[Rfam]
RNA: Bacterial large subunit ribosomal RNA, nucleotides 565 to 791
Organism: Paraglaciecola hydrolytica
RNA sequence: GACUUAUAUUUAGUAGCAAGGUUAACCGAAUAGGGGAGCCGUAGCGAAAGCGAGUGUUAACUGCGCGUUGAGUUGCUAGGUAUAGACCCGAAACCCGGUGAUCUAGCCAUGGGCAGGUUGAAGGUUGAGUAACAUCAACUGGAGGACCGAACCGACUAAUGUUGAAAAAUUAGCGGAUGACUUGUGGCUGGGGGUGAAAGGCCAAUCAAACCGGGAGAUAGCUGGUU
Numbered sequence: 001g002a003c004u005u006a007u008a009u010u011u012a013g014u015a016g017c018a019a020g021g022u023u024a025a026c027c028g029a030a031u032a033g034g035g036g037a038g039c040c041g042u043a044g045c046g047a048a049a050g051c052g053a054g055u056g057u058u059a060a061c062u063g064c065g066c067g068u069u070g071a072g073u074u075g076c077u078a079g080g081u082a083u084a085g086a087c088c089c090g091a092a093a094c095c096c097g098g099u100g101a102u103c104u105a106g107c108c109a110u111g112g113g114c115a116g117g118u119u120g121a122a123g124g125u126u127g128a129g130u131a132a133c134a135u136c137a138a139c140u141g142g143a144g145g146a147c148c149g150a151a152c153c154g155a156c157u158a159a160u161g162u163u164g165a166a167a168a169a170u171u172a173g174c175g176g177a178u179g180a181c182u183u184g185u186g187g188c189u190g191g192g193g194g195u196g197a198a199a200g201g202c203c204a205a206u207c208a209a210a211c212c213g214g215g216a217g218a219u220a221g222c223u224g225g226u227u
Stems, first nucleotide, its partner, number of pairs: 005084013020040004026034002044051002054066004087225002090222001094215006103191011114179001116148004123140006152176003156173005193203003